[Rfam]
RNA: mir-67 microRNA precursor family
RNA sequence: CUUGGAGUGGACUCACUCAACUUGGCUGUGAUUACUUGGGGUGGUGUCACAACCUCCUUGAGUGAGUGAACUCUGGG
Numbered sequence: 001c002u003u004g005g006a007g008u009g010g011a012c013u014c015a016c017u018c019a020a021c022u023u024g025g026c027u028g029u030g031a032u033u034a035c036u037u038g039g040g041g042u043g044g045u046g047u048c049a050c051a052a053c054c055u056c057c058u059u060g061a062g063u064g065a066g067u068g069a070a071c072u073c074u075g076g077g
Stems, first nucleotide, its partner, number of pairs: 008069001010067001012066009024054002027051006